[Rfam]
RNA sequence: AAUGAUUCGUUUUAUCCGCCUAUCAGGACUACUCCUUCUCGCAUUUAAUGUGCGCGGUAGUUUUGUGGGCGGAAUCAAAAAAUGAUUCGGGCCUGAAAACAGAAAAACCCGCGCCGCAGCGCGGGUUUUUUU
Numbered sequence: 001a002a003u004g005a006u007u008c009g010u011u012u013u014a015u016c017c018g019c020c021u022a023u024c025a026g027g028a029c030u031a032c033u034c035c036u037u038c039u040c041g042c043a044u045u046u047a048a049u050g051u052g053c054g055c056g057g058u059a060g061u062u063u064u065g066u067g068g069g070c071g072g073a074a075u076c077a078a079a080a081a082a083u084g085a086u087u088c089g090g091g092c093c094u095g096a097a098a099a100c101a102g103a104a105a106a107a108c109c110c111g112c113g114c115c116g117c118a119g120c121g122c123g124g125g126u127u128u129u130u131u132u
Stems, first nucleotide, its partner, number of pairs: 001087001003085001005083003016072008025063001032060002035057002040054004104129011